[Rfam]
RNA sequence: AUAACGUAUUGGGAAGCGGCACGCUUCCCGUGUAUGAUUGAACCCGUCGGCGCGCAGGCGUCAGGGUUCAUUUUUGU
Numbered sequence: 001a002u003a004a005c006g007u008a009u010u011g012g013g014a015a016g017c018g019g020c021a022c023g024c025u026u027c028c029c030g031u032g033u034a035u036g037a038u039u040g041a042a043c044c045c046g047u048c049g050g051c052g053c054g055c056a057g058g059c060g061u062c063a064g065g066g067u068u069c070a071u072u073u074u075u076g077u
Stems, first nucleotide, its partner, number of pairs: 010030009039070007

The family of this 77-nucleotide sequence from Pluralibacter gergoviae is "sroE RNA".
On this family, see Vogel et al., Nucleic Acids Res 2003: "RNomics in Escherichia coli detects new sRNA species and indicates parallel transcriptional output in bacteria".
The base pairs follow the family's consensus structure, which was predicted with PFOLD.
NCBI's taxonomy places the organism under Bacteria, Pseudomonadota, Gammaproteobacteria, Enterobacteriaceae, Pluralibacter.
Rfam describes the family as follows. This family consists of a number of bacterial sroE RNA genes of around 90 bases in length. sroE is found in several Enterobacterial species but its function is unknown.